[Rfam]
RNA sequence: AAUUCGUGUAAGGGACAUUUGUGUAAAAGCUCUUUGUAUCGCUCCCAAGCCUCGUACAUGGAUUCAUCAUUUGCCUGUCGGAAAGAAGUGAUUUCAAUACGUAACU
Numbered sequence: 001a002a003u004u005c006g007u008g009u010a011a012g013g014g015a016c017a018u019u020u021g022u023g024u025a026a027a028a029g030c031u032c033u034u035u036g037u038a039u040c041g042c043u044c045c046c047a048a049g050c051c052u053c054g055u056a057c058a059u060g061g062a063u064u065c066a067u068c069a070u071u072u073g074c075c076u077g078u079c080g081g082a083a084a085g086a087a088g089u090g091a092u093u094u095c096a097a098u099a100c101g102u103a104a105c106u
Base pairs, nucleotide, nucleotide: 001106003104004103005101006100060071
The family of this 106-nucleotide RNA sequence from Hibiscus trionum is "Plant small nucleolar RNA R71". On this family, see Brown et al., Trends Plant Sci 2003: "Plant snoRNAs: functional evolution and new modes of gene expression". It is annotated as a C/D-box small nucleolar RNA. The organism belongs to Hibiscus, within Eukaryota.